The family of this 78-nucleotide RNA sequence from Alligator sinensis is "Mammalian CPEB3 ribozyme". It scores 43 bits against the family's covariance model.

[Rfam]
RNA sequence: AGCGUACAAAUUCAAGGCCACAGCAGAAGCGCUCGUGGAGUAGCCCUGUCAGAUUCCAGCAAAUCUGUAAAUUCUGCU
Numbered sequence: 001a002g003c004g005u006a007c008a009a010a011u012u013c014a015a016g017g018c019c020a021c022a023g024c025a026g027a028a029g030c031g032c033u034c035g036u037g038g039a040g041u042a043g044c045c046c047u048g049u050c051a052g053a054u055u056c057c058a059g060c061a062a063a064u065c066u067g068u069a070a071a072u073u074c075u076g077c078u
Base pairs, nucleotide, nucleotide: 016045017044018043022078023077024076025075026074027073028072029041030040050067051066052065053064054063055062